Overview:
The record is an 83-nucleotide RNA from Acyrthosiphon pisum, which matches "Mammalian CPEB3 ribozyme" in Rfam. Pairs were carried over by alignment from the consensus structure, which is taken from published work. Rfam links the family to the GO term RNA nuclease activity.

RNA sequence: CGUAGAUAAGAUGGGGGCUUGGCAGAAACCUUCACGUGGUGCCCCUGUUAAUGCUGUUAAUGCCACAGCUAACUAAUUCUGCC
Number, nucleotide and partner (000 for none) at each position: 001c000002g000003u000004a000005g000006a000007u000008a000009a000010g000011a000012u000013g045014g044015g043016g042017g000018c041019u000020u000021g083022g082023c081024a080025g079026a078027a077028a040029c039030c038031u000032u000033c000034a000035c000036g000037u000038g030039g029040u028041g018042c016043c015044c014045c013046u000047g000048u000049u072050a070051a000052u000053g069054c068055u067056g066057u065058u000059a000060a000061u000062g000063c000064c000065a057066c056067a055068g054069c053070u050071a000072a049073c000074u000075a000076a000077u027078u026079c025080u024081g023082c022083c021